RNA sequence: GGCCCUGAUGAUAACGGUGUCUCUUCUUUCCUCGUCCGAUUCGACCAUGACGACAUGGGAUUUUAUCUCGUUCCCUUAAUAUUAGUGGUUUUGAGAAGAUGAACAUCACCUCGGUGACGUUUUUCUUUCUCUUAGCCAUUGGUGUUUGCAAACGGGAACUUUUCUUGCCAGUGUUAUACAACACAUGCAGAUCUGAGCC
Numbered sequence: 001g002g003c004c005c006u007g008a009u010g011a012u013a014a015c016g017g018u019g020u021c022u023c024u025u026c027u028u029u030c031c032u033c034g035u036c037c038g039a040u041u042c043g044a045c046c047a048u049g050a051c052g053a054c055a056u057g058g059g060a061u062u063u064u065a066u067c068u069c070g071u072u073c074c075c076u077u078a079a080u081a082u083u084a085g086u087g088g089u090u091u092u093g094a095g096a097a098g099a100u101g102a103a104c105a106u107c108a109c110c111u112c113g114g115u116g117a118c119g120u121u122u123u124u125c126u127u128u129c130u131c132u133u134a135g136c137c138a139u140u141g142g143u144g145u146u147u148g149c150a151a152a153c154g155g156g157a158a159c160u161u162u163u164c165u166u167g168c169c170a171g172u173g174u175u176a177u178a179c180a181a182c183a184c185a186u187g188c189a190g191a192u193c194u195g196a197g198c199c
Stems, first nucleotide, its partner, number of pairs: 001199003007193003019061005025055001032053005066157007078146013093131006101122004106117004165190004171184005
RNA: Small nucleolar RNA snR190